[Rfam]
RNA sequence: CAGUGUGUGCUAAAGUGCUUACAGUGCAGGUAGAAUCAGUGUCCUGCCUACUGCAGUGUGAGCACUUGCAGCAUAAGUGG
Number, nucleotide and partner (000 for none) at each position: 001c000002a000003g000004u077005g000006u075007g074008u000009g072010c071011u070012a000013a067014a066015g065016u064017g063018c062019u061020u060021a059022c058023a057024g000025u055026g054027c053028a000029g052030g051031u050032a049033g048034a000035a000036u000037c000038a000039g000040u000041g000042u000043c000044c000045u000046g000047c000048c033049u032050a031051c030052u029053g027054c026055a025056g000057u023058g022059u021060g020061a019062g018063c017064a016065c015066u014067u013068g000069c000070a011071g010072c009073a000074u007075a006076a000077g004078u000079g000080g000
Overview
A member of the RNA family "mir-17 microRNA precursor family" from Polypterus senegalus, 80 nucleotides long. The organism belongs to Polypterus, within Eukaryota. It scores 66 bits against the family's covariance model. Rfam's curators write: This family represents the microRNA (miRNA) precursor mir-17, family, which includes mir-20, mir-91, and mir-103. miRNAs are transcribed as ~70nt precursors (modelled here) and subsequently processed by the Dicer enzyme to give a ~22nt product. In this case the mature sequence comes from the 3' arm of the precursor. The extents of the hairpin precursors are not generally known and are estimated based on hairpin prediction. The family's consensus secondary structure was predicted with RNAalifold. On this family, see Lagos-Quintana et al., Science 2001: "Identification of novel genes coding for small expressed RNAs".